A member of the RNA family "U8 small nucleolar RNA" from Loxodonta africana, 136 nucleotides long.
Its family is annotated with RNA processing and nucleolus in the Gene Ontology.
The organism belongs to Loxodonta, within Eukaryota.
Rfam's curators put it in the seed alignment.
By type it is a C/D-box small nucleolar RNA.
A reference for the family is Peculis et al. (2001), "The U8 snoRNA gene family: identification and characterization of distinct, functional U8 genes in Xenopus", Gene.

[Rfam]
Nucleotides: 136
Base pairs, nucleotide, nucleotide: 024046025045026044028043029042030041031040032039033038075093076092079089080088081086097125098124099123100122101121102120103119104118105117
Number, partner (000 for none) and nucleotide at each position: 001000u002000c003000g004000u005000c006000a007000g008000u009000a010000a011000g012000g013000u014000u015000a016000a017000u018000c019000c020000u021000u022000a023000c024046c025045u026044g027000u028043u029042u030041c031040u032039c033038c034000u035000u036000u037000c038033g039032g040031a041030g042029a043028g044026c045025a046024g047000a048000u049000u050000u051000a052000a053000a054000a055000u056000g057000a058000u059000g060000a061000u062000u063000u064000g065000g066000a067000g068000c069000u070000c071000g072000c073000a074000u075093g076092a077000u078000c079089c080088g081086u082000g083000a084000u085000u086081a087000a088080c089079g090000u091000u092076u093075c094000c095000g096000c097125g098124u099123g100122a101121u102120c103119a104118g105117g106000a107000c108000c109000a110000g111000c112000a113000a114000c115000a116000u117105c118104c119103u120102g121101a122100u123099u124098g125097c126000u127000c128000c129000u130000a131000u132000c133000u134000g135000a136000u